[Rfam]
Nucleotides: 205
Base pairs, nucleotide, nucleotide: 016112017111019110020109021108022107025104028101029100030099031098032097033096034095036093037092038091052087053086054085056083058081059080064079065078138154139153140152141151142150173203174202175201176200177199178198179197180196181195182194183193184192185191
Number, partner (000 for none) and nucleotide at each position: 001000a002000a003000c004000a005000a006000a007000a008000g009000a010000a011000a012000u013000u014000a015000a016112g017111c018000g019110u020109u021108u022107u023000c024000a025104a026000a027000u028101u029100u030099c031098a032097a033096a034095g035000a036093a037092a038091u039000g040000g041000g042000g043000a044000a045000u046000a047000a048000g049000a050000g051000a052087u053086g054085g055000g056083u057000a058081c059080g060000a061000u062000u063000g064079u065078u066000u067000g068000c069000c070000a071000a072000g073000a074000u075000u076000g077000c078065a079064a080059c081058g082000a083056a084000g085054c086053c087052a088000u089000u090000c091038a092037u093036u094000a095034c096033u097032u098031u099030g100029a101028a102000g103000a104025u105000g106000a107022g108021a109020a110019a111017g112016u113000g114000a115000c116000a117000a118000c119000a120000u121000u122000a123000u124000a125000u126000g127000g128000a129000a130000c131000u132000u133000g134000c135000u136000g137000c138154g139153g140152a141151c142150a143000a144000u145000g146000u147000c148000a149000a150142u151141g152140u153139c154138c155000u156000g157000u158000u159000g160000a161000u162000g163000a164000a165000g166000a167000g168000u169000a170000a171000a172000a173203a174202a175201a176200a177199g178198c179197a180196u181195g182194c183193g184192g185191c186000u187000u188000a189000a190000a191185g192184c193183c194182g195181c196180a197179u198178g199177c200176u201175u202174u203173u204000u205000a
Notes:
The record is a 205-nucleotide RNA sequence from Bacillus subtilis, which matches "SR1 sRNA" in Rfam. NCBI's taxonomy places the organism under Bacteria, Bacillati, Bacilli, Bacillaceae, Bacillus. On this family, see Heidrich et al., Nucleic Acids Res 2007: "In vitro analysis of the interaction between the small RNA SR1 and its primary target ahrC mRNA". It is one of the family's seed sequences. Gene Ontology terms of the family: translation repressor activity, mRNA regulatory element binding and negative regulation of translational initiation.